RNA sequence: GCGCAAAGUGACUUUGGGCGACGGAUUAUUUUUCGUCGCGCAAACUUUGGUCGCGCAAGACUUUGAGCGACGAAGUUUCAACUUUCGUCGCUCAAAGUGACUUUGCGC
Numbered sequence: 001g002c003g004c005a006a007a008g009u010g011a012c013u014u015u016g017g018g019c020g021a022c023g024g025a026u027u028a029u030u031u032u033u034c035g036u037c038g039c040g041c042a043a044a045c046u047u048u049g050g051u052c053g054c055g056c057a058a059g060a061c062u063u064u065g066a067g068c069g070a071c072g073a074a075g076u077u078u079c080a081a082c083u084u085u086c087g088u089c090g091c092u093c094a095a096a097g098u099g100a101c102u103u104u105g106c107g108c
Base pairs, nucleotide, nucleotide: 001108002107003106004105005104006103007102008101009100011098012097013096014095015094016093017092018091019090020089021088022087023086024085025084033073034072035071036070037069038068039067041065042064043063049062050061051060052059
Record summary
MIR6297 microRNA precursor family: a 108-nucleotide RNA sequence from Prunus dulcis. The match comes from Rfam's covariance-model search (114 bits). Gene Ontology terms of the family: miRNA-mediated post-transcriptional gene silencing and RISC complex.